[Rfam]
RNA sequence: UCUGCGGGCCGGGCCCCUCUGGCGGCAUGUGUCGCGAUGUCGGCCCGACAUC
Dot-bracket structure: .....(((((((.........(((((....)))))....)))))))......
This 52-nucleotide sequence from alpha proteobacterium U9-1i belongs to the Rfam family "terC RNA". Rfam 15.1 lists 1,112 matches to the family in 772 species.